[Rfam]
Nucleotides: 082
Base pairs, nucleotide, nucleotide: 001082002081003080004079005078
Number, partner (000 for none) and nucleotide at each position: 001082a002081g003080c004079a005078a006000a007000g008000u009000g010000a011000u012000g013000a014000a015000g016000u017000u018000c019000u020000u021000a022000a023000a024000c025000c026000c027000g028000a029000a030000g031000u032000u033000c034000a035000a036000u037000g038000u039000g040000g041000a042000a043000c044000a045000c046000c047000u048000u049000c050000a051000u052000a053000g054000a055000u056000a057000a058000u059000g060000g061000u062000c063000u064000u065000c066000a067000a068000a069000g070000u071000u072000c073000u074000c075000u076000g077000a078005u079004u080003g081002u082001u

About this RNA: Shown here is an 82-nucleotide RNA sequence from Nyssa sinensis, a member of the family "Small nucleolar RNA R160". snoR160 is a C/D box small nucleolar RNA, which acts as a methylation guide for 25S ribosomal RNA in plants. snoR160 has been alternatively named snoZ270 in rice. Rfam links the family to the GO terms nucleolus and RNA processing. The source organism's lineage runs through Eukaryota, Mesangiospermae, Gunneridae, Nyssaceae and Nyssa. A search with the family's covariance model found it, with a score of 60 bits. By type it is a C/D-box small nucleolar RNA.